Rfam assigns this 374-nucleotide part of an RNA from Candidatus Cenarchaeum symbiosum to the family "Archaeal large subunit ribosomal RNA". The source organism's lineage runs through Archaea, Nitrososphaerota, Candidatus Cenarchaeales, Candidatus Cenarchaeaceae and Candidatus Cenarchaeum.

RNA sequence: CGGGUAUACCGUAUGGCGAGGGAAUUCGGCAAAUUAGUCCUGUAGCUUAGGUAUAAGGGAUGCCUGCAGCUGUCAUGAGGAAUGGCGGCAGCAGGUUGCAGUGACAAGGGGGUUUCGACUGUUUAAUAAAAACACAGGCGACUGCUAGCCCGAAAGGGUAUGUAUAGUCGCUGAAUCCUGGCCGGUGCCGGUAUCUAAAACUUGGGUUCAACCGAGCUAAGGACCGGUUAACGCCGGGAGUAACUCUGACUCUCUUAAGGUAGCCAAAUGCCUUGUCGGGUAAGUUCCGACGUGCAUGAAUGGAACAACGAGAGCCCCACUGUCCCCGCCUACAACCCGGUGAAGCCACAUAAGGUGGACGAACAGUCCAUCAU
Numbered sequence: 001c002g003g004g005u006a007u008a009c010c011g012u013a014u015g016g017c018g019a020g021g022g023a024a025u026u027c028g029g030c031a032a033a034u035u036a037g038u039c040c041u042g043u044a045g046c047u048u049a050g051g052u053a054u055a056a057g058g059g060a061u062g063c064c065u066g067c068a069g070c071u072g073u074c075a076u077g078a079g080g081a082a083u084g085g086c087g088g089c090a091g092c093a094g095g096u097u098g099c100a101g102u103g104a105c106a107a108g109g110g111g112g113u114u115u116c117g118a119c120u121g122u123u124u125a126a127u128a129a130a131a132a133c134a135c136a137g138g139c140g141a142c143u144g145c146u147a148g149c150c151c152g153a154a155a156g157g158g159u160a161u162g163u164a165u166a167g168u169c170g171c172u173g174a175a176u177c178c179u180g181g182c183c184g185g186u187g188c189c190g191g192u193a194u195c196u197a198a199a200a201c202u203u204g205g206g207u208u209c210a211a212c213c214g215a216g217c218u219a220a221g222g223a224c225c226g227g228u229u230a231a232c233g234c235c236g237g238g239a240g241u242a243a244c245u246c247u248g249a250c251u252c253u254c255u256u257a258a259g260g261u262a263g264c265c266a267a268a269u270g271c272c273u274u275g276u277c278g279g280g281u282a283a284g285u286u287c288c289g290a291c292g293u294g295c296a297u298g299a300a301u302g303g304a305a306c307a308a309c310g311a312g313a314g315c316c317c318c319a320c321u322g323u324c325c326c327c328g329c330c331u332a333c334a335a336c337c338c339g340g341u342g343a344a345g346c347c348a349c350a351u352a353a354g355g356u357g358g359a360c361g362a363a364c365a366g367u368c369c370a371u372c373a374u
Stems, first nucleotide, its partner, number of pairs: 001339004011333003015330004020325003037061005045052002062096006069089008097101001109318007116310002120134003137172008145162001148159004176304003180235003185232002187228005194223003201216005236254006255259001275291006354372005